Description: Shown here is an 84-nucleotide sequence from Chrysochloris asiatica, a member of the family "Selenocysteine transfer RNA".

RNA sequence: GUAAGGAAGAUCCUCAGUGGUCUGGGGUGCAGGCUUCAAACCUGUAGCUGUCUAGCGACAAGGUAGUUCAAUUCCAAUUUUUGG
Numbered sequence: 001g002u003a004a005g006g007a008a009g010a011u012c013c014u015c016a017g018u019g020g021u022c023u024g025g026g027g028u029g030c031a032g033g034c035u036u037c038a039a040a041c042c043u044g045u046a047g048c049u050g051u052c053u054a055g056c057g058a059c060a061a062g063g064u065a066g067u068u069c070a071a072u073u074c075c076a077a078u079u080u081u082u083g084g
Stems, first nucleotide, its partner, number of pairs: 005082005012027006028046006049060004064076001066074001